[Rfam]
RNA sequence: CCCUCCUACCUAAAGAUGUGUUGGUGGUUCCCUGUCUUUGGACAUGAAAGAAUUGGAGGCAAAGAAUUGUGGACUUGGAGAAAUCUGGGGCCAGAUUGCUCCUUGCAGGUUCAAGAGCAACCAUCCCACAUAG
Numbered sequence: 001c002c003c004u005c006c007u008a009c010c011u012a013a014a015g016a017u018g019u020g021u022u023g024g025u026g027g028u029u030c031c032c033u034g035u036c037u038u039u040g041g042a043c044a045u046g047a048a049a050g051a052a053u054u055g056g057a058g059g060c061a062a063a064g065a066a067u068u069g070u071g072g073a074c075u076u077g078g079a080g081a082a083a084u085c086u087g088g089g090g091c092c093a094g095a096u097u098g099c100u101c102c103u104u105g106c107a108g109g110u111u112c113a114a115g116a117g118c119a120a121c122c123a124u125c126c127c128a129c130a131u132a133g
Base pairs, nucleotide, nucleotide: 002059003058004057005056006055017046018045019044020043021042022041026032027031071126072125073124075123093111094110096108097107098106099105
Shown here is a 133-nucleotide sequence from Molossus molossus, a member of the family "Small nucleolar RNA SNORA38". Rfam classes the family as an H/ACA-box small nucleolar RNA. Pairs were carried over by alignment from the consensus structure, which was predicted with RNAfold. The organism belongs to Molossus, within Eukaryota. ACA38 is a member of the H/ACA class of snoRNA that guide the sites of modification of uridines to pseudouridines. It scores 123 bits against the family's covariance model.